Small nucleolar RNA R11/Z151: a 99-nucleotide RNA sequence from Leersia perrieri. Rfam links the family to the GO terms RNA processing and nucleolus. The organism belongs to Leersia, within Eukaryota. A reference for the family is Barneche et al. (2001), "Identification of 66 box C/D snoRNAs in Arabidopsis thaliana: extensive gene duplications generated multiple isoforms predicting new ribosomal RNA 2'-O-methylation sites", J Mol Biol. Rfam 15.1 lists 802 matches to the family in 218 species. The match comes from Rfam's covariance-model search (68 bits).
RNA sequence: GAGCUUCUGAUGAUUCAGGUAUGAAAGGAUCUUAGCGGAUUUCCGUGAGGCGAUUCUGUCACCGUUGAUCGCCUACUAUUGUUACAAACACUGAAGCUU
Numbered sequence: 001g002a003g004c005u006u007c008u009g010a011u012g013a014u015u016c017a018g019g020u021a022u023g024a025a026a027g028g029a030u031c032u033u034a035g036c037g038g039a040u041u042u043c044c045g046u047g048a049g050g051c052g053a054u055u056c057u058g059u060c061a062c063c064g065u066u067g068a069u070c071g072c073c074u075a076c077u078a079u080u081g082u083u084a085c086a087a088a089c090a091c092u093g094a095a096g097c098u099u
Base pairs, nucleotide, nucleotide: 001099002098003097004096005095006094007093